Shown here is a 100-nucleotide RNA sequence from Lachnospiraceae bacterium KM106-2, a member of the family "THF (Tetrahydrofolate) riboswitch aptamer". Taxonomically the source falls in Lachnospiraceae (Bacteria, Bacillati, Clostridia, Lachnospirales). Rfam links the family to the GO term tetrahydrofolate metabolic process. It scores 102 bits against the family's covariance model. Pairs were carried over by alignment from the consensus structure, which is taken from published work.

RNA sequence: AGCAGAGUAGGAUGAUGUGCGUUAAGUGCCAGUUAGACGGGGAGUUGCUAACCGGACGAAAAGUAUUAUACUUGCGGUACAUCAUCCGCAUCCCGCUGCU
Numbered sequence: 001a002g003c004a005g006a007g008u009a010g011g012a013u014g015a016u017g018u019g020c021g022u023u024a025a026g027u028g029c030c031a032g033u034u035a036g037a038c039g040g041g042g043a044g045u046u047g048c049u050a051a052c053c054g055g056a057c058g059a060a061a062a063g064u065a066u067u068a069u070a071c072u073u074g075c076g077g078u079a080c081a082u083c084a085u086c087c088g089c090a091u092c093c094c095g096c097u098g099c100u
Stems, first nucleotide, its partner, number of pairs: 001100005010087010020076003026057002029055002032052005040093003044089001061073004